A member of the RNA family "TPP riboswitch aptamer (THI element)" from Falsihalocynthiibacter arcticus, 98 nucleotides long. Taxonomically the source falls in Falsihalocynthiibacter (Bacteria, Pseudomonadati, Alphaproteobacteria, Rhodobacterales). The family's consensus secondary structure is taken from published work. The match comes from Rfam's covariance-model search (61 bits). Vitamin B(1) in its active form thiamin pyrophosphate (TPP) is an essential coenzyme that is synthesised by coupling of pyrimidine and thiazole moieties in bacteria.
[Rfam]
RNA sequence: GGUCUUACCUCGGGGGGCCUUAGUGGCUGAGAUACGAAAGUGGACCCGUUGAACCUGAACCGAUUAAGAUCGGCGGAGGGAAGGUCUGGGAUUCUCCC
Numbered sequence: 001g002g003u004c005u006u007a008c009c010u011c012g013g014g015g016g017g018c019c020u021u022a023g024u025g026g027c028u029g030a031g032a033u034a035c036g037a038a039a040g041u042g043g044a045c046c047c048g049u050u051g052a053a054c055c056u057g058a059a060c061c062g063a064u065u066a067a068g069a070u071c072g073g074c075g076g077a078g079g080g081a082a083g084g085u086c087u088g089g090g091a092u093u094c095u096c097c098c
Stems, first nucleotide, its partner, number of pairs: 007085004011048004017027003034041002054079003060073004